[Rfam]
RNA sequence: AAAAAGGCAAUGAAAAGAAGAGUAUGCUUUGAAAAAAUCAACAGAGAGUUCUACAAUGCUGAAAGGGAACGGUUUGGAAAAAGCAGAACAUGGUCUUGGAGCUGCAUACUGAAAGCAUAUUUUAUGUAAGUAGGCUAUGACGGGAACGCCCGUAACAGCGUUAGAGUGUCAGUUUUUUUUAACUCGCACUUGAUGAGGCUCUUAUUGUGAGAUAAGAGCAAAAUAGGGUGGUAACACGAAGCUAUGCUCUCGUCCCUAUG
Number, nucleotide and partner (000 for none) at each position: 001a000002a000003a000004a000005a000006g000007g102008c101009a000010a000011u000012g000013a000014a000015a097016a096017g095018a094019a000020g000021a000022g000023u000024a000025u085026g084027c083028u082029u081030u080031g000032a000033a000034a000035a000036a000037a073038u072039c071040a000041a000042c000043a000044g000045a000046g000047a000048g070049u069050u068051c067052u066053a000054c000055a000056a000057u000058g000059c000060u000061g000062a000063a000064a000065g000066g052067g051068a050069a049070c048071g039072g038073u037074u000075u000076g000077g000078a000079a000080a030081a029082a028083g027084c026085a025086g000087a000088a000089c000090a000091u000092g000093g000094u018095c017096u016097u015098g000099g000100a000101g008102c007103u000104g000105c139106a138107u137108a136109c000110u134111g000112a000113a000114a000115g000116c000117a000118u000119a000120u000121u000122u000123u000124a000125u000126g000127u000128a000129a000130g000131u000132a000133g000134g110135c000136u108137a107138u106139g105140a000141c152142g151143g150144g000145a000146a000147c000148g000149c000150c143151c142152g141153u000154a000155a000156c000157a000158g000159c000160g000161u000162u000163a000164g000165a000166g000167u000168g000169u000170c000171a000172g000173u000174u000175u000176u000177u000178u000179u000180u000181a000182a000183c000184u000185c000186g000187c000188a000189c000190u000191u000192g000193a000194u000195g000196a000197g000198g219199c218200u217201c216202u215203u214204a213205u000206u000207g000208u000209g000210a000211g000212a000213u204214a203215a202216g201217a200218g199219c198220a000221a000222a000223a000224u000225a257226g256227g255228g254229u000230g000231g000232u000233a000234a000235c000236a253237c252238g251239a250240a000241g000242c000243u000244a000245u000246g000247c000248u000249c000250u239251c238252g237253u236254c228255c227256c226257u225258a000259u000260g000
A member of the RNA family "T-box leader" from Clostridium sp. MD294, 260 nucleotides long. Pairs were carried over by alignment from the consensus structure, which is taken from published work. By type it is a cis-regulatory leader. Rfam describes the family as follows. Uncharged tRNA acts as the effector for transcription antitermination of genes in the T-box leader family. Rfam links the family to the GO term tRNA binding. For this family Rfam cites "tRNA determinants for transcription antitermination of the Bacillus subtilis tyrS gene" (Grundy et al., RNA, 2000). The organism belongs to Clostridium, within Bacteria.